[Rfam]
RNA sequence: AUUUCGCAUAAUCUCAGCUGGCAACUGUGAGCUGUGCCGUCGCCCCCCUCACGGUGGCUGCUGGGAUUAUGUUAAAC
Numbered sequence: 001a002u003u004u005c006g007c008a009u010a011a012u013c014u015c016a017g018c019u020g021g022c023a024a025c026u027g028u029g030a031g032c033u034g035u036g037c038c039g040u041c042g043c044c045c046c047c048c049u050c051a052c053g054g055u056g057g058c059u060g061c062u063g064g065g066a067u068u069a070u071g072u073u074a075a076a077c
Base pairs, nucleotide, nucleotide: 003075004074006072007071009069010068011067012066013065014064015063016062017061020059021058022057023055026053027052028051029050030049031048